[Rfam]
A member of the RNA family "mir-147 microRNA precursor family" from Equus caballus, 78 nucleotides long. The family has 26 seed sequences and 757 matches in Rfam 15.1. The sequence is in the family's curated seed alignment. The organism belongs to Equus, within Eukaryota. Gene Ontology terms of the family: miRNA-mediated post-transcriptional gene silencing and RISC complex. A reference for the family is Kawaji et al. (2008), "Hidden layers of human small RNAs", BMC Genomics. The base pairs follow the family's consensus structure, which was predicted with RNAalifold.

RNA sequence: UAGGAAUGUUAAGGAGACCAUUCUGCACAAACUGGAGUAUGGAUAUCAGUGUGCCGAAAUGCUUCUGCUACAUUUUUA
Numbered sequence: 001u002a003g004g005a006a007u008g009u010u011a012a013g014g015a016g017a018c019c020a021u022u023c024u025g026c027a028c029a030a031a032c033u034g035g036a037g038u039a040u041g042g043a044u045a046u047c048a049g050u051g052u053g054c055c056g057a058a059a060u061g062c063u064u065c066u067g068c069u070a071c072a073u074u075u076u077u078a
Stems, first nucleotide, its partner, number of pairs: 001078002004075004009070001012066004018061001021058003025054005032049002